[Rfam]
RNA sequence: GCUCGCUGGGUGUAACAGCCGCUCCAUGUGGAAAAUGCAUUCAAGUGCCCGUGGAUAAGCUGUUACCUGCAGAGAGU
Dot-bracket structure: .....(((...((((((((...(((((..((................)).)))))...))))))))...))).....
The record is a 77-nucleotide RNA sequence from Danio rerio, which matches "mir-194 microRNA precursor family" in Rfam. On this family, see Michael et al., Mol Cancer Res 2003: "Reduced accumulation of specific microRNAs in colorectal neoplasia". The base pairs follow the family's consensus structure, which was predicted with RNAalifold.